[Rfam]
RNA sequence: AAAAAAGCUGAUGAAACUAUAUUUCGUUUAUCAAAGCCUUUCGGGUCUGAAGAUAAGAAAAUGAUGAAGAAAAAAUCUGAUUUU
Number, nucleotide and partner (000 for none) at each position: 001a000002a000003a084004a083005a082006a081007g000008c000009u000010g000011a000012u000013g000014a000015a000016a000017c000018u000019a000020u000021a000022u000023u000024u000025c000026g000027u000028u000029u000030a000031u000032c000033a000034a000035a000036g000037c000038c000039u000040u000041u000042c000043g000044g000045g000046u000047c000048u000049g000050a000051a000052g000053a000054u000055a000056a000057g000058a000059a000060a000061a000062u000063g000064a000065u000066g000067a000068a000069g000070a000071a000072a000073a000074a000075a000076u000077c000078u000079g000080a000081u006082u005083u004084u003
Rfam assigns this 84-nucleotide sequence from Plasmodium malariae to the family "small nucleolar RNA snoR29". NCBI's taxonomy places the organism under Eukaryota, Sar, Apicomplexa, Haemosporida, Plasmodium. Its family is annotated with RNA processing and nucleolus in the Gene Ontology. A search with the family's covariance model found it, with a score of 60 bits.